[Rfam]
RNA sequence: UGAUGCCAGGGUCAAAAGGUCAUAAAACACGUUGUGCUUGCACAUAAGUAGUUUUAUGCCUUUAUGACCCGCCCCGAAAUGAGAAUAACAGCGGGGCGUAUGCUCCGCGAUAUUCGAAUUUGGGGCAGAAUUGUGGAAGUGUGCAGCACGAAACAAUUCUUUCUGCAUCU
Numbered sequence: 001u002g003a004u005g006c007c008a009g010g011g012u013c014a015a016a017a018g019g020u021c022a023u024a025a026a027a028c029a030c031g032u033u034g035u036g037c038u039u040g041c042a043c044a045u046a047a048g049u050a051g052u053u054u055u056a057u058g059c060c061u062u063u064a065u066g067a068c069c070c071g072c073c074c075c076g077a078a079a080u081g082a083g084a085a086u087a088a089c090a091g092c093g094g095g096g097c098g099u100a101u102g103c104u105c106c107g108c109g110a111u112a113u114u115c116g117a118a119u120u121u122g123g124g125g126c127a128g129a130a131u132u133g134u135g136g137a138a139g140u141g142u143g144c145a146g147c148a149c150g151a152a153a154c155a156a157u158u159c160u161u162u163c164u165g166c167a168u169c170u
Stems, first nucleotide, its partner, number of pairs: 002169005010069004017062003021058008029049002033044004073125003077121004083115004091108007128159007139149004
RNA: Clostridiales-1 RNA
Organism: Firmicutes bacterium CAG:646